[Rfam]
RNA: Fluoride riboswitch aptamer (crcB RNA motif)
RNA sequence: UGUAAAAAAGGCGAUGGGGCUCGCCAUAAUUGCUGAUACAUAAUUGCUCAGCUGAUAGCUCCUACCGGUGA
Numbered sequence: 001u002g003u004a005a006a007a008a009a010g011g012c013g014a015u016g017g018g019g020c021u022c023g024c025c026a027u028a029a030u031u032g033c034u035g036a037u038a039c040a041u042a043a044u045u046g047c048u049c050a051g052c053u054g055a056u057a058g059c060u061c062c063u064a065c066c067g068g069u070g071a
Base pairs, nucleotide, nucleotide: 010025011024012023013022016062017061018060019059020058021057032052033051034050035049